[Rfam]
RNA: Fluoride riboswitch aptamer (crcB RNA motif)
RNA sequence: AUGCUAUAAGGGAAUGGAGUUCUCCCUUGAUAUAUUUUAAUAUAUAUCAGAACUGCCGGAAUAGUGGGCUGAUGACUUCUGUGAAUUU
Numbered sequence: 001a002u003g004c005u006a007u008a009a010g011g012g013a014a015u016g017g018a019g020u021u022c023u024c025c026c027u028u029g030a031u032a033u034a035u036u037u038u039a040a041u042a043u044a045u046a047u048c049a050g051a052a053c054u055g056c057c058g059g060a061a062u063a064g065u066g067g068g069c070u071g072a073u074g075a076c077u078u079c080u081g082u083g084a085a086u087u088u
Base pairs, nucleotide, nucleotide: 010026011025012024013023016079017078018077019076020075021074055069056068057067